RNA sequence: GUGCCGCCCUGUGCGGCGUCCCUGGCCUGCAACGGGGCCGGCAGCGGGGGUGGUGCCGUGUCGGCGCGGCACCACCCCCGCGUC
Numbered sequence: 001g002u003g004c005c006g007c008c009c010u011g012u013g014c015g016g017c018g019u020c021c022c023u024g025g026c027c028u029g030c031a032a033c034g035g036g037g038c039c040g041g042c043a044g045c046g047g048g049g050g051u052g053g054u055g056c057c058g059u060g061u062c063g064g065c066g067c068g069g070c071a072c073c074a075c076c077c078c079c080g081c082g083u084c
Stems, first nucleotide, its partner, number of pairs: 001019007021041001023040003026036003044081013058067003

This 84-nucleotide sequence from Streptomyces mexicanus belongs to the Rfam family "Streptomyces RNA 6106". A reference for the family is Vockenhuber et al. (2011), "Deep sequencing-based identification of small non-coding RNAs in Streptomyces coelicolor", RNA Biol. Rfam's curators write: Identified by deep sequencing of transcriptome at the end of exponential growth phase. Appears smaller on northern blot than sequencing transcript. This indicates processing step. Streptomyces specific. NCBI's taxonomy places the organism under Bacteria, Actinomycetes, Kitasatosporales, Streptomycetaceae, Streptomyces. The base pairs follow the family's consensus structure.